Rfam assigns this 85-nucleotide sequence to the family "GA-cis RNA". It is one of the family's seed sequences.
RNA sequence: CAGAGGAGGUACCCAUGCAUCGUAGAUGCAUAUAAAAUGGUACCGACGAUAUGCCGCCCAAUGAAAUGAGGGGGCAAUACUUAAA
Numbered sequence: 001c002a003g004a005g006g007a008g009g010u011a012c013c014c015a016u017g018c019a020u021c022g023u024a025g026a027u028g029c030a031u032a033u034a035a036a037a038u039g040g041u042a043c044c045g046a047c048g049a050u051a052u053g054c055c056g057c058c059c060a061a062u063g064a065a066a067u068g069a070g071g072g073g074g075c076a077a078u079a080c081u082u083a084a085a
Stems, first nucleotide, its partner, number of pairs: 008044006015031006053075003057071002061067002